Nucleotides: 081
Stems, first nucleotide, its partner, number of pairs: 003079003007075005014068005020062002024058010
Number, partner (000 for none) and nucleotide at each position: 001000u002000c003079u004078g005077g006000g007075c008074c009073u010072g011071a012000u013000u014068c015067a016066a017065g018064u019000a020062a021061u022000c023000c024058a025057g026056g027055a028054u029053a030052g031051g032050u033049u034000u035000g036000u037000u038000c039000a040000u041000g042000a043000a044000g045000g046000u047000a048000a049033a050032g051031c052030c053029u054028a055027u056026u057025c058024u059000g060000c061021a062020u063000g064018a065017c066016u067015u068014g069000g070000u071011u072010c073009a074008g075007g076000a077005c078004u079003a080000c081000g
About this RNA:
mir-26 microRNA precursor family: an 81-nucleotide RNA sequence from Hucho hucho. NCBI's taxonomy places the organism under Eukaryota, Actinopteri, Clupeocephala, Protacanthopterygii, Hucho. Gene Ontology terms of the family: miRNA-mediated post-transcriptional gene silencing and RISC complex. For this family Rfam cites "Identification of novel genes coding for small expressed RNAs" (Lagos-Quintana et al., Science, 2001).